[Rfam]
RNA sequence: UAUGUGGUUAAUGAUGCAUAUUCUUUUUUCCCCGUCUUAUCGACAAUGCUGAAACACAGCUGUAAAUAAGCCAAUUAUGUCUGAAACCACAUA
Numbered sequence: 001u002a003u004g005u006g007g008u009u010a011a012u013g014a015u016g017c018a019u020a021u022u023c024u025u026u027u028u029u030c031c032c033c034g035u036c037u038u039a040u041c042g043a044c045a046a047u048g049c050u051g052a053a054a055c056a057c058a059g060c061u062g063u064a065a066a067u068a069a070g071c072c073a074a075u076u077a078u079g080u081c082u083g084a085a086a087c088c089a090c091a092u093a
Stems, first nucleotide, its partner, number of pairs: 001093009
Dot-bracket structure: (((((((((...........................................................................)))))))))

A member of the RNA family "Small nucleolar SNORD12/SNORD106" from Menidia menidia, 93 nucleotides long. It is annotated as a C/D-box small nucleolar RNA. Its Rfam clan is "SNORD12 clan". The organism belongs to Menidia, within Eukaryota. Pairs were carried over by alignment from the consensus structure, which was predicted with RNAalifold.